[Rfam]
RNA sequence: CAUUCUGGGUAGAGUCCAAUAGGGAGGGCAUUGCAGGUGAAAAUUUUAAGCACUGCAAUGGCUCCUAUUGGUCAAUAGUCAGAAAUG
Numbered sequence: 001c002a003u004u005c006u007g008g009g010u011a012g013a014g015u016c017c018a019a020u021a022g023g024g025a026g027g028g029c030a031u032u033g034c035a036g037g038u039g040a041a042a043a044u045u046u047u048a049a050g051c052a053c054u055g056c057a058a059u060g061g062c063u064c065c066u067a068u069u070g071g072u073c074a075a076u077a078g079u080c081a082g083a084a085a086u087g
Stems, first nucleotide, its partner, number of pairs: 001087004005082004010077002014073001016071009028062001029060008037051002

This 87-nucleotide RNA from Holothuria leucospilota belongs to the Rfam family "mir-2005 microRNA precursor family". Lineage of the source: Eukaryota > Bilateria > Deuterostomia > Echinodermata > Holothuria. It scores 71 bits against the family's covariance model.